[Rfam]
RNA sequence: UGGGCGGUCAACAAGCGUGGGCCUGGCUGCGCGCGGCGGGGCGCGGAGACCGCGAGGCGACCAGGAGCGGCUGGGCUUCCGGCUGCGCGCCCCUCGGCCAGGCCGGGAGUCGCGCCAGUCGGAGCCCCCGGCCCAGCACGGCCCACCUCCCUCUCGGCGUCCAUCUGUCCGGGGUGCAGCCGGCGGGCAUGACCGACCCACCAGGGGCGCCGCCGCCGGCGCUCGCAGGCCGCGGAUGAAGAAGAAAACCCGGUGCCGCUCGGCCCGGAGCGAGGAGCUGACCCUGAGUGAGGAGGCGACCGGUAGCGAGGCGACCCAAAGUGAGGAGGCGACCCUGGGCGAAGAGAUGAGUCGGAGCCAGGAGGUC
Numbered sequence: 001u002g003g004g005c006g007g008u009c010a011a012c013a014a015g016c017g018u019g020g021g022c023c024u025g026g027c028u029g030c031g032c033g034c035g036g037c038g039g040g041g042c043g044c045g046g047a048g049a050c051c052g053c054g055a056g057g058c059g060a061c062c063a064g065g066a067g068c069g070g071c072u073g074g075g076c077u078u079c080c081g082g083c084u085g086c087g088c089g090c091c092c093c094u095c096g097g098c099c100a101g102g103c104c105g106g107g108a109g110u111c112g113c114g115c116c117a118g119u120c121g122g123a124g125c126c127c128c129c130g131g132c133c134c135a136g137c138a139c140g141g142c143c144c145a146c147c148u149c150c151c152u153c154u155c156g157g158c159g160u161c162c163a164u165c166u167g168u169c170c171g172g173g174g175u176g177c178a179g180c181c182g183g184c185g186g187g188c189a190u191g192a193c194c195g196a197c198c199c200a201c202c203a204g205g206g207g208c209g210c211c212g213c214c215g216c217c218g219g220c221g222c223u224c225g226c227a228g229g230c231c232g233c234g235g236a237u238g239a240a241g242a243a244g245a246a247a248a249c250c251c252g253g254u255g256c257c258g259c260u261c262g263g264c265c266c267g268g269a270g271c272g273a274g275g276a277g278c279u280g281a282c283c284c285u286g287a288g289u290g291a292g293g294a295g296g297c298g299a300c301c302g303g304u305a306g307c308g309a310g311g312c313g314a315c316c317c318a319a320a321g322u323g324a325g326g327a328g329g330c331g332a333c334c335c336u337g338g339g340c341g342a343a344g345a346g347a348u349g350a351g352u353c354g355g356a357g358c359c360a361g362g363a364g365g366u367c
Base pairs, nucleotide, nucleotide: 020104021103022102023101024100025099026098027097038093039092040091041090042089043053044052045051046050061082062081064079065078066077067076068075144349145348147346148345149344166189167188168187169186170185171184205224206223207222208221209220210219211218212217257272258271259270260269261268
Record summary: Bag-1 internal ribosome entry site (IRES): a 367-nucleotide sequence from Cebus imitator. NCBI's taxonomy places the organism under Eukaryota, Metazoa, Teleostomi, Boreoeutheria, Cebus. Pairs were carried over by alignment from the consensus structure, which was predicted with PFOLD. This family represents the bag-1 internal ribosome entry site (IRES). When expressed the BAG-1 protein is known to enhance the anti-apoptotic properties of Bcl-2.